[Rfam]
RNA sequence: AUGUGUCUUCAGGGCAGGGUGUAAUUCCCUACCGGCGGUAAAGCCCGCGAGCCGUAAGAUUUUCUUACAGGUUGAUUCGGUGAGAUUCCGAGGCCGACAGUAUAGUCUGGAUGGAAGAAGAUGAUC
Numbered sequence: 001a002u003g004u005g006u007c008u009u010c011a012g013g014g015c016a017g018g019g020u021g022u023a024a025u026u027c028c029c030u031a032c033c034g035g036c037g038g039u040a041a042a043g044c045c046c047g048c049g050a051g052c053c054g055u056a057a058g059a060u061u062u063u064c065u066u067a068c069a070g071g072u073u074g075a076u077u078c079g080g081u082g083a084g085a086u087u088c089c090g091a092g093g094c095c096g097a098c099a100g101u102a103u104a105g106u107c108u109g110g111a112u113g114g115a116a117g118a119a120g121a122u123g124a125u126c
Base pairs, nucleotide, nucleotide: 004123005122006121007120008119009118010117017029018028019027031106032105033096034095035048036047037046038045043094044093051072052071053070076092077091078090079089080088098109099108100107